[Rfam]
RNA sequence: AGAGGCCCUCCGCGGCCGGGGUGGGAUGCUUGCCUCAUCGCCGCGGUGACAAAGCAAGCAUUCCGCUAGGCCGCUUACGCUGCCGCU
Numbered sequence: 001a002g003a004g005g006c007c008c009u010c011c012g013c014g015g016c017c018g019g020g021g022u023g024g025g026a027u028g029c030u031u032g033c034c035u036c037a038u039c040g041c042c043g044c045g046g047u048g049a050c051a052a053a054g055c056a057a058g059c060a061u062u063c064c065g066c067u068a069g070g071c072c073g074c075u076u077a078c079g080c081u082g083c084c085g086c087u
Stems, first nucleotide, its partner, number of pairs: 004084003012074006020067014038049004
Source information:
This 87-nucleotide RNA from Cnephaeus nilssonii belongs to the Rfam family "mir-9195 microRNA precursor family". The match comes from Rfam's covariance-model search (96 bits).